Description: Shown here is a 65-nucleotide RNA sequence from Octodon degus, a member of the family "Small nucleolar RNA SNORD24".
RNA sequence: UGUAGAUGAUGUGAGAGAAUAUUUGCUAUAUGAAAGAUGGUGAAGACAUUUCAAAAUGAAGUGCA
Numbered sequence: 001u002g003u004a005g006a007u008g009a010u011g012u013g014a015g016a017g018a019a020u021a022u023u024u025g026c027u028a029u030a031u032g033a034a035a036g037a038u039g040g041u042g043a044a045g046a047c048a049u050u051u052c053a054a055a056a057u058g059a060a061g062u063g064c065a
Stems, first nucleotide, its partner, number of pairs: 001065004
The base pairs follow the family's consensus structure, which was predicted with PFOLD. Its family is annotated with RNA processing and nucleolus in the Gene Ontology. Rfam 15.1 lists 2,843 matches to the family in 1,188 species. The match comes from Rfam's covariance-model search (44 bits). The organism belongs to Octodon, within Eukaryota.